[Rfam]
RNA sequence: UAACAUUUUGCUGUACCUUAAUGAUCUUCUCGCCUGUAAAGAUCGCCUUCGGGUGGCGAAAUGAAACUCCCGUAGCCUGCAAGGGAGAGCAUUGCAAUGCGGUACAUCUGCACACUUUUGGAAGCAGAUAUCGCUGGACAACAACCCU
Numbered sequence: 001u002a003a004c005a006u007u008u009u010g011c012u013g014u015a016c017c018u019u020a021a022u023g024a025u026c027u028u029c030u031c032g033c034c035u036g037u038a039a040a041g042a043u044c045g046c047c048u049u050c051g052g053g054u055g056g057c058g059a060a061a062u063g064a065a066a067c068u069c070c071c072g073u074a075g076c077c078u079g080c081a082a083g084g085g086a087g088a089g090c091a092u093u094g095c096a097a098u099g100c101g102g103u104a105c106a107u108c109u110g111c112a113c114a115c116u117u118u119u120g121g122a123a124g125c126a127g128a129u130a131u132c133g134c135u136g137g138a139c140a141a142c143a144a145c146c147c148u
Stems, first nucleotide, its partner, number of pairs: 001013002004010002023044005030059005045054003067087004072105003076102002089100003107128005117141002131138002
Rfam assigns this 148-nucleotide sequence from Xenorhabdus innexi to the family "STAXI RNA". The base pairs follow the family's consensus structure, which is taken from published work.